Rfam assigns this 129-nucleotide RNA to the family "Actinobacteria sRNA Ms_IGR-7".
Rfam 15.1 lists 463 matches to the family in 194 species.
The literature on the family includes a 2013 paper in RNA by Li et al., "Identification of small RNAs in Mycobacterium smegmatis using heterologous Hfq".
[Rfam]
RNA sequence: ACACUGGGCCUUCAGAACUAGGACAACAGGAGUAUUUUAUUGAUCAAUAAAAUACUCCUGUUGUCCUAGUUCUGAAGGCCCAGUGUUGCUCCUUUCCUCUUUGGAGCCAUAACAAACCAGUGAGUUAAG
Numbered sequence: 001a002c003a004c005u006g007g008g009c010c011u012u013c014a015g016a017a018c019u020a021g022g023a024c025a026a027c028a029g030g031a032g033u034a035u036u037u038u039a040u041u042g043a044u045c046a047a048u049a050a051a052a053u054a055c056u057c058c059u060g061u062u063g064u065c066c067u068a069g070u071u072c073u074g075a076a077g078g079c080c081c082a083g084u085g086u087u088g089c090u091c092c093u094u095u096c097c098u099c100u101u102u103g104g105a106g107c108c109a110u111a112a113c114a115a116a117c118c119a120g121u122g123a124g125u126u127a128a129g
Stems, first nucleotide, its partner, number of pairs: 002085015018069005024063004029058001031056011110127004116121001